[Rfam]
The family of this 71-nucleotide sequence from Triplophysa rosa is "mir-124 microRNA precursor family". It scores 70 bits against the family's covariance model.

RNA sequence: CGCUGUACGUGUUCACGGUGGACCUUUUUUUAAUAUAUUUCAAUUAAGGCACGCGGUGAAUGCCAAUAGCG
Number, nucleotide and partner (000 for none) at each position: 001c000002g000003c069004u068005g067006u066007a000008c000009g063010u062011g061012u060013u059014c058015a057016c056017g000018g054019u053020g052021g000022a000023c049024c048025u047026u046027u000028u000029u043030u042031u000032a000033a000034u000035a000036u000037a000038u000039u000040u000041c000042a030043a029044u000045u000046a026047a025048g024049g023050c000051a000052c020053g019054c018055g000056g016057u015058g014059a013060a012061u011062g010063c009064c000065a000066a006067u005068a004069g003070c000071g000